[Rfam]
RNA: c-di-GMP-I riboswitch aptamer
RNA sequence: GUAUGACAAAGCUAAACCCGGAGCGAUCCGGCGGCAGAAAACUAUAGGGUCUCACGUAGAUAGCCAGUUACCUUA
Numbered sequence: 001g002u003a004u005g006a007c008a009a010a011g012c013u014a015a016a017c018c019c020g021g022a023g024c025g026a027u028c029c030g031g032c033g034g035c036a037g038a039a040a041a042c043u044a045u046a047g048g049g050u051c052u053c054a055c056g057u058a059g060a061u062a063g064c065c066a067g068u069u070a071c072c073u074u075a
Stems, first nucleotide, its partner, number of pairs: 012037002018031005040069004047065002049061003